[Rfam]
RNA: Group II catalytic intron D1-D4-7
RNA sequence: CCUGUUAUGUAACUAGCAGUAACCUAGGGAUAGUGCAUUACUGGCAACGGUAGUGUACAGAGCUUCCUGACAAUGUACACCCCGCAAGGGUUAUUGAAAUCGUGAGAAGACAAUAAGAAAGCAUUAAACUACAUAAUGUUGAGUGG
Number, nucleotide and partner (000 for none) at each position: 001c000002c019003u018004g017005u016006u015007a014008u000009g000010u000011a000012a000013c000014u007015a006016g005017c004018a003019g002020u000021a000022a000023c000024c000025u000026a000027g068028g067029g066030a065031u000032a000033g058034u057035g056036c055037a054038u053039u052040a051041c050042u049043g048044g000045c000046a000047a000048c043049g042050g041051u040052a039053g038054u037055g036056u035057a034058c033059a000060g000061a000062g000063c000064u000065u030066c029067c028068u027069g000070a000071c000072a000073a000074u000075g000076u000077a000078c000079a000080c000081c090082c089083c088084g000085c000086a000087a000088g083089g082090g081091u116092u115093a114094u113095u000096g000097a000098a000099a000100u107101c106102g000103u000104g000105a000106g101107a100108a000109g000110a000111c000112a000113a094114u093115a092116a091117g000118a000119a000120a000121g139122c138123a137124u136125u135126a134127a000128a000129c000130u000131a000132c000133a000134u126135a125136a124137u123138g122139u121140u000141g000142a000143g000144u000145g000146g000